Lysine riboswitch aptamer: a 171-nucleotide sequence from Erysipelotrichaceae bacterium RD49.
RNA sequence: AUCAGCGAUAGAGGUUGCGCAAUUGACUGACGAUCAGGGAGCCGGCAGGCAUCUGACCUGGUCUCAAGCAUGAGCGCCGAACUGGGGAUUCAGGCAUGAAGAUCCGGUGGGCCAGCGGAGAAUAUCUUCUGGACUGUCUGCAGGAAAAUCUGCAGGAGGGCUAUCAAACAC
Numbered sequence: 001a002u003c004a005g006c007g008a009u010a011g012a013g014g015u016u017g018c019g020c021a022a023u024u025g026a027c028u029g030a031c032g033a034u035c036a037g038g039g040a041g042c043c044g045g046c047a048g049g050c051a052u053c054u055g056a057c058c059u060g061g062u063c064u065c066a067a068g069c070a071u072g073a074g075c076g077c078c079g080a081a082c083u084g085g086g087g088a089u090u091c092a093g094g095c096a097u098g099a100a101g102a103u104c105c106g107g108u109g110g111g112c113c114a115g116c117g118g119a120g121a122a123u124a125u126c127u128u129c130u131g132g133a134c135u136g137u138c139u140g141c142a143g144g145a146a147a148a149u150c151u152g153c154a155g156g157a158g159g160g161c162u163a164u165c166a167a168a169c170a171c
Stems, first nucleotide, its partner, number of pairs: 007165005017077004024070002032063007081108006089100004109135002112132004117127003137156007
Source information:
NCBI's taxonomy places the organism under Bacteria, Bacillati, Bacillota, Erysipelotrichia, Erysipelotrichaceae.